[Rfam]
RNA sequence: CCAAAACUAGCCACUUGUCAUUUUCUAAUUAAUUUUAGAAGUUUUUUAACACACUAUGAACCAAUUAGAAAAUGACAAGUGGCUAGUUUUGG
Numbered sequence: 001c002c003a004a005a006a007c008u009a010g011c012c013a014c015u016u017g018u019c020a021u022u023u024u025c026u027a028a029u030u031a032a033u034u035u036u037a038g039a040a041g042u043u044u045u046u047u048a049a050c051a052c053a054c055u056a057u058g059a060a061c062c063a064a065u066u067a068g069a070a071a072a073u074g075a076c077a078a079g080u081g082g083c084u085a086g087u088u089u090u091g092g
Base pairs, nucleotide, nucleotide: 002091003090004089005088006087007086008085009084010083011082012081013080014079015078016077017076018075019074020073021072022071023070024069025068026067027066028065029064030063033060034059035058038055
Shown here is a 92-nucleotide sequence from Prunus avium, a member of the family "MIR6288 microRNA precursor family". Rfam 15.1 lists 293 matches to the family in 9 species. Its family is annotated with miRNA-mediated post-transcriptional gene silencing and RISC complex in the Gene Ontology. The base pairs follow the family's consensus structure, which was predicted with RNAalifold.